Guanidine-II riboswitch aptamer (mini-ykkC): a 49-nucleotide RNA from Pseudoroseicyclus aestuarii.
NCBI's taxonomy places the organism under Bacteria, Pseudomonadati, Pseudomonadota, Paracoccaceae, Pseudoroseicyclus.
About the family: Simpler in structure and has fewer highly conserved nucleotide positions than the ykkC-yxkD leader.
The base pairs follow the family's consensus structure, which is taken from published work.
RNA sequence: CCGCGAGGACGACCUCCCCCCAUCGGGGCAUCAUGCCGGGACGGCCCGG
Numbered sequence: 001c002c003g004c005g006a007g008g009a010c011g012a013c014c015u016c017c018c019c020c021c022a023u024c025g026g027g028g029c030a031u032c033a034u035g036c037c038g039g040g041a042c043g044g045c046c047c048g049g
Base pairs, nucleotide, nucleotide: 003018005016006015007014008013036049037048038047039046040045